Shown here is a 129-nucleotide RNA sequence from Falco tinnunculus, a member of the family "Small nucleolar RNA SNORA47". NCBI's taxonomy places the organism under Eukaryota, Opisthokonta, Sauria, Saurischia, Falco. Gene Ontology terms of the family: RNA processing and nucleolus. For this family Rfam cites "RNomics: an experimental approach that identifies 201 candidates for novel, small, non-messenger RNAs in mouse" (Huttenhofer et al., EMBO J, 2001). Rfam classes the family as an H/ACA-box small nucleolar RNA.
RNA sequence: UGGAGGACUGAGAAGGUAAGACAGUUAAACUUUAUGCUGUAUCUUACUGGUUAUAGCCUCCAAAAUUAGAAUAGUGCAAUGACAACUCAUGCUUCCCUCCUGACGUGAGGGAAAGCAGUACUGCAUUUG
Numbered sequence: 001u002g003g004a005g006g007a008c009u010g011a012g013a014a015g016g017u018a019a020g021a022c023a024g025u026u027a028a029a030c031u032u033u034a035u036g037c038u039g040u041a042u043c044u045u046a047c048u049g050g051u052u053a054u055a056g057c058c059u060c061c062a063a064a065a066u067u068a069g070a071a072u073a074g075u076g077c078a079a080u081g082a083c084a085a086c087u088c089a090u091g092c093u094u095c096c097c098u099c100c101u102g103a104c105g106u107g108a109g110g111g112a113a114a115g116c117a118g119u120a121c122u123g124c125a126u127u128u129g
Stems, first nucleotide, its partner, number of pairs: 002061005015048004019042001021040005081121001085119003093113005100107001